[Rfam]
RNA sequence: UUUAUGAAGCAUGAUGAACUGUAUUGAUCUGACAGUGCAAUGGAGUCUCAAUUCAAUCCAACCCUGAGCUUCAUAGU
Number, nucleotide and partner (000 for none) at each position: 001u000002u076003u075004a074005u073006g072007a071008a070009g069010c068011a000012u000013g000014a000015u000016g000017a000018a000019c000020u000021g000022u000023a000024u000025u000026g000027a000028u000029c000030u000031g000032a000033c000034a000035g000036u000037g000038c000039a000040a000041u000042g000043g000044a000045g000046u000047c000048u000049c000050a000051a000052u000053u000054c000055a000056a000057u000058c000059c000060a000061a000062c000063c000064c000065u000066g000067a000068g010069c009070u008071u007072c006073a005074u004075a003076g002077u000
RNA: Small nucleolar RNA SNORD69